[Rfam]
RNA sequence: CGUCGGAGCCCGAUUUUUCAAUAGUUUGAAACCAGUGUACACAUAAAUGGUUACAAAGUAUUUGAAAAGUCGUGCUCUGAAA
Numbered sequence: 001c002g003u004c005g006g007a008g009c010c011c012g013a014u015u016u017u018u019c020a021a022u023a024g025u026u027u028g029a030a031a032c033c034a035g036u037g038u039a040c041a042c043a044u045a046a047a048u049g050g051u052u053a054c055a056a057a058g059u060a061u062u063u064g065a066a067a068a069g070u071c072g073u074g075c076u077c078u079g080a081a082a
Stems, first nucleotide, its partner, number of pairs: 003080007011072009020062004025057004030052005

The family of this 82-nucleotide RNA sequence from Caenorhabditis elegans is "mir-85 microRNA precursor family". Taxonomically the source falls in Caenorhabditis (Eukaryota, Opisthokonta, Protostomia, Rhabditida). A reference for the family is Ruby et al. (2006), "Large-scale sequencing reveals 21U-RNAs and additional microRNAs and endogenous siRNAs in C. elegans", Cell. Its family is annotated with RISC complex and miRNA-mediated post-transcriptional gene silencing in the Gene Ontology.